[Rfam]
Nucleotides: 048
Stems, first nucleotide, its partner, number of pairs: 011047005017041003
Number, partner (000 for none) and nucleotide at each position: 001000g002000g003000a004000a005000a006000c007000u008000u009000u010000g011047c012046u013045c014044c015043g016000c017041a018040c019039a020000a021000g022000g023000g024000a025000a026000u027000g028000c029000g030000a031000u032000g033000a034000g035000a036000c037000a038000u039019u040018g041017u042000a043015c044014g045013g046012a047011g048000c

The record is a 48-nucleotide RNA from Zongyangia hominis, which matches "uup RNA" in Rfam. By type it is a cis-regulatory element. A search with the family's covariance model found it, with a score of 56 bits. Lineage of the source: Bacteria > Bacillati > Eubacteriales > Oscillospiraceae > Zongyangia.